Record summary:
mir-490 microRNA precursor family: an 81-nucleotide RNA from Sus scrofa. The family's consensus secondary structure was predicted with RNAalifold.
[Rfam]
RNA sequence: CAUUGUUCGACACCAUGGAUCCCCAGGUGGGUCACGUUUCAAGAUACACCAACCUGGAGGACUCCAUGCUGUUGAGCUGUU
Numbered sequence: 001c002a003u004u005g006u007u008c009g010a011c012a013c014c015a016u017g018g019a020u021c022c023c024c025a026g027g028u029g030g031g032u033c034a035c036g037u038u039u040c041a042a043g044a045u046a047c048a049c050c051a052a053c054c055u056g057g058a059g060g061a062c063u064c065c066a067u068g069c070u071g072u073u074g075a076g077c078u079g080u081u
Base pairs, nucleotide, nucleotide: 007075008074009073010072011071012070014068015067016066017065018064019063020060021059023057024056025055026054027053028052030050031049032048
Description
Rfam links the family to the GO terms RISC complex and miRNA-mediated post-transcriptional gene silencing.